[Rfam]
Nucleotides: 075
Stems, first nucleotide, its partner, number of pairs: 003072005010065006018057001020055002023052004028048003
Number, partner (000 for none) and nucleotide at each position: 001000u002000u003072c004071u005070g006069g007068c008000c009000g010065g011064c012063c013062u014061g015060a016000a017000u018057c019000g020055u021054u022000g023052c024051u025050c026049a027000a028048c029047c030046u031000g032000u033000a034000u035000u036000u037000u038000a039000a040000u041000u042000u043000a044000c045000g046030a047029g048028g049026u050025g051024a052023g053000c054021a055020a056000a057018g058000u059000u060015u061014c062013a063012g064011g065010u066000g067000u068007g069006u070005c071004a072003g073000c074000a075000u
Shown here is a 75-nucleotide RNA sequence from Orchesella cincta, a member of the family "mir-87 microRNA precursor family".
On this family, see Sempere et al., Dev Biol 2003: "Temporal regulation of microRNA expression in Drosophila melanogaster mediated by hormonal signals and broad-Complex gene activity".
Pairs were carried over by alignment from the consensus structure, which was predicted with RNAalifold.